[Rfam]
RNA sequence: GCAGCUCGCACUUAAUGACACACGUGCAUCGAUAACCCUGAGCCGGGUGCUGGAUUUUCCAGUUGGUCUCGCGGGAUGUGCGGAGGAAAAAC
Numbered sequence: 001g002c003a004g005c006u007c008g009c010a011c012u013u014a015a016u017g018a019c020a021c022a023c024g025u026g027c028a029u030c031g032a033u034a035a036c037c038c039u040g041a042g043c044c045g046g047g048u049g050c051u052g053g054a055u056u057u058u059c060c061a062g063u064u065g066g067u068c069u070c071g072c073g074g075g076a077u078g079u080g081c082g083g084a085g086g087a088a089a090a091a092c
Base pairs, nucleotide, nucleotide: 023082024081025080026079027078028077029076030075036073038071040069041067043065049063050062051061052060053059